[Rfam]
The record is a 71-nucleotide sequence from Orthoflavivirus denguei, which matches "Dengue virus SLA" in Rfam. By type it is a cis-regulatory element. Rfam links the family to the GO term viral RNA genome replication. The sequence is in the family's curated seed alignment. The base pairs follow the family's consensus structure, which is taken from published work. Its Rfam clan is "Flavivirus 5' UTR clan". About the family: Flavivirus stem-loop A (SLA) is a secondary structure present in the 5 prime untranslated (5'-UTR) region of viruses of the genus Flavivirus.

RNA sequence: AGUUGUUAGUCUACGUGGACCGACAAGAACAGUUUCGACUCGGAAGCUUGCUUAACGUAGUGCUGACAGUU
Number, nucleotide and partner (000 for none) at each position: 001a071002g070003u069004u068005g067006u066007u065008a064009g063010u000011c060012u059013a058014c057015g056016u055017g000018g000019a000020c043021c042022g041023a040024c000025a000026a000027g036028a035029a034030c000031a000032g000033u000034u029035u028036c027037g000038a000039c000040u023041c022042g021043g020044a053045a052046g051047c000048u000049u000050g000051c046052u045053u044054a000055a016056c015057g014058u013059a012060g011061u000062g000063c009064u008065g007066a006067c005068a004069g003070u002071u001